[Rfam]
Source information:
The record is an 81-nucleotide sequence, which matches "nadA riboswitch" in Rfam. The base pairs follow the family's consensus structure, which is taken from published work. For this family Rfam cites "Structural distinctions between NAD+ riboswitch domains 1 and 2 determine differential folding and ligand binding" (Chen et al., Nucleic Acids Res, 2020). Rfam's curators put it in the seed alignment.
RNA sequence: GCUUUCAACAUCCCCGUUUCGGAUCUGAGCGAAGCGACAGGUGAUUCCACCUGCUGCGAGCAGCUGUCCGGAGCUGAAGGC
Numbered sequence: 001g002c003u004u005u006c007a008a009c010a011u012c013c014c015c016g017u018u019u020c021g022g023a024u025c026u027g028a029g030c031g032a033a034g035c036g037a038c039a040g041g042u043g044a045u046u047c048c049a050c051c052u053g054c055u056g057c058g059a060g061c062a063g064c065u066g067u068c069c070g071g072a073g074c075u076g077a078a079g080g081c
Stems, first nucleotide, its partner, number of pairs: 001081007016074007025066001028065003

Rfam classes the family as a small RNA.